Bacterial RNase P class A: a 420-nucleotide RNA from Caldithrix abyssi. It scores 243 bits against the family's covariance model. Pairs were carried over by alignment from the consensus structure, which is taken from published work. Rfam classes the family as a ribozyme. Gene Ontology terms of the family: ribonuclease P activity, tRNA processing and dimeric ribonuclease P complex. Lineage of the source: Bacteria > Pseudomonadati > Calditrichia > Calditrichaceae > Caldithrix abyssi.

RNA sequence: CGGAUGAACCGGGUAGCCACUCCGGCAGAGCGCUCUGCCGGGGAGGAAAGUCCGAACAUCAAAGGGCAGGGUUCCUUGAGAAAUCAAGGGCGGUCGUUUGGCCGACGGAAAGUGUCACAGAAAAUGUACCGUCCCGCUCCGGCGGGAUAAGGGUGAAAAGGCGAGGUAAGAGCUCACCACUCCGUUCCAUACGGAAUACCCUUGCGGUACCAAAGGCGGAGGUAGGACAAACCCAAUCUGAUGCAAGACCAAAUAUAGAAGGAUCCCGCUUUGCGGGAGCGUACGGCCCGGUACGCGUUCCGUAAGGGAACACACUUCAGGGUAGGUCGCUUAAGUCAACUGGCAACGGUUGACUAAGAGAAAUGGCUACCGUCCCGCUGCGGCGGGAUACAGAAUUCGGCUUACAAGUUUAUCCGGACC
Number, nucleotide and partner (000 for none) at each position: 001c416002g415003g414004a413005u412006g411007a410008a409009c408010c000011g405012g371013g370014u369015a368016g367017c366018c365019a000020c043021u042022c041023c040024g039025g038026c037027a036028g035029a000030g000031c000032g000033c000034u000035c028036u027037g026038c025039c024040g023041g022042g021043g020044a000045g000046g000047a000048a403049a402050g401051u000052c400053c399054g398055a397056a396057c243058a242059u241060c240061a000062a000063a000064g000065g000066g000067c000068a000069g239070g238071g237072u236073u235074c089075c088076u087077u086078g085079a000080g000081a000082a000083a000084u000085c078086a077087a076088g075089g074090g106091c104092g103093g102094u101095c000096g000097u000098u000099u000100g000101g094102c093103c092104g091105a000106c090107g234108g233109a000110a000111a000112g232113u231114g228115u227116c226117a000118c000119a000120g000121a000122a000123a000124a000125u000126g000127u000128a000129c152130c151131g148132u147133c146134c145135c144136g143137c142138u000139c000140c000141g000142g137143c136144g135145g134146g133147a132148u131149a000150a000151g130152g129153g000154u000155g000156a000157a000158a000159a000160g178161g177162c000163g175164a174165g173166g000167u000168a000169a000170g000171a000172g000173c165174u164175c163176a000177c161178c160179a223180c221181u220182c219183c218184g217185u216186u000187c000188c000189a000190u000191a000192c000193g000194g000195a000196a000197u000198a000199c000200c000201c000202u000203u000204g000205c000206g000207g000208u000209a000210c000211c000212a000213a000214a000215g000216g185217c184218g183219g182220a181221g180222g000223u179224a000225g000226g116227a115228c114229a000230a000231a113232c112233c108234c107235a073236a072237u071238c070239u069240g060241a059242u058243g057244c000245a000246a000247g328248a327249c326250c325251a000252a000253a000254u000255a000256u000257a000258g318259a317260a316261g315262g000263a000264u000265c000266c000267c000268g000269c000270u000271u000272u000273g000274c000275g000276g000277g000278a000279g000280c000281g000282u000283a000284c000285g000286g000287c000288c000289c000290g000291g000292u000293a000294c000295g000296c000297g311298u310299u309300c308301c307302g000303u000304a000305a000306g000307g301308g300309a299310a298311c297312a000313c000314a000315c261316u260317u259318c258319a000320g000321g000322g000323u000324a000325g250326g249327u248328c247329g000330c000331u000332u000333a000334a000335g354336u353337c352338a351339a350340c349341u348342g347343g000344c000345a000346a000347c342348g341349g340350u339351u338352g337353a336354c335355u000356a000357a000358g000359a000360g000361a000362a000363a000364u000365g018366g017367c016368u015369a014370c013371c012372g000373u000374c000375c000376c000377g000378c000379u000380g000381c000382g000383g000384c000385g000386g000387g000388a000389u000390a000391c000392a000393g000394a000395a000396u056397u055398c054399g053400g052401c050402u049403u048404a000405c011406a000407a000408g009409u008410u007411u006412a005413u004414c003415c002416g001417g000418a000419c000420c000